The record is a 119-nucleotide sequence from Trema andersonii, which matches "MIR168 microRNA precursor family" in Rfam. The source organism's lineage runs through Eukaryota, Streptophyta, Streptophytina, eudicotyledons and Trema. It scores 114 bits against the family's covariance model. The family's consensus secondary structure was predicted with WAR. Gene Ontology terms of the family: RISC complex and miRNA-mediated post-transcriptional gene silencing.
RNA sequence: UUACCGGCGGUCUCUAAUUCGCUUGGUGCAGGUCGGGAACUGGUUCGCUGUGCUACUGAUUUAGUUUUGAGCGAAAUGGAUCCCGCCUUGCAUCAACUGAAUCGGAGACAGCGGUGAAG
Numbered sequence: 001u002u003a004c005c006g007g008c009g010g011u012c013u014c015u016a017a018u019u020c021g022c023u024u025g026g027u028g029c030a031g032g033u034c035g036g037g038a039a040c041u042g043g044u045u046c047g048c049u050g051u052g053c054u055a056c057u058g059a060u061u062u063a064g065u066u067u068u069g070a071g072c073g074a075a076a077u078g079g080a081u082c083c084c085g086c087c088u089u090g091c092a093u094c095a096a097c098u099g100a101a102u103c104g105g106a107g108a109c110a111g112c113g114g115u116g117a118a119g
Stems, first nucleotide, its partner, number of pairs: 013106002017102004023096010034085005040079002